[Rfam]
RNA sequence: UGCUCAAUGAUUAAGCCAUAUUAUGCCGUGGCAAUAUGCGCUAUUCUGAAUCAUAUUAAGAUGUCAUAAACCUUACGAGAGCA
Numbered sequence: 001u002g003c004u005c006a007a008u009g010a011u012u013a014a015g016c017c018a019u020a021u022u023a024u025g026c027c028g029u030g031g032c033a034a035u036a037u038g039c040g041c042u043a044u045u046c047u048g049a050a051u052c053a054u055a056u057u058a059a060g061a062u063g064u065c066a067u068a069a070a071c072c073u074u075a076c077g078a079g080a081g082c083a
Base pairs, nucleotide, nucleotide: 001083002082003081004080005079
The record is an 83-nucleotide sequence from Oryza glumipatula, which matches "Small nucleolar RNA U54" in Rfam. Clan: U54 clan. The source organism's lineage runs through Eukaryota, Mesangiospermae, Liliopsida, commelinids and Oryza. By type it is a C/D-box small nucleolar RNA. For this family Rfam cites "The high diversity of snoRNAs in plants: identification and comparative study of 120 snoRNA genes from Oryza sativa" (Chen et al., Nucleic Acids Res, 2003). Its family is annotated with nucleolus and RNA processing in the Gene Ontology. A search with the family's covariance model found it, with a score of 69 bits. Rfam describes the family as follows. U54 is a C/D box small nucleolar RNA, which acts as a methylation guide for 18S ribosomal RNA in plants.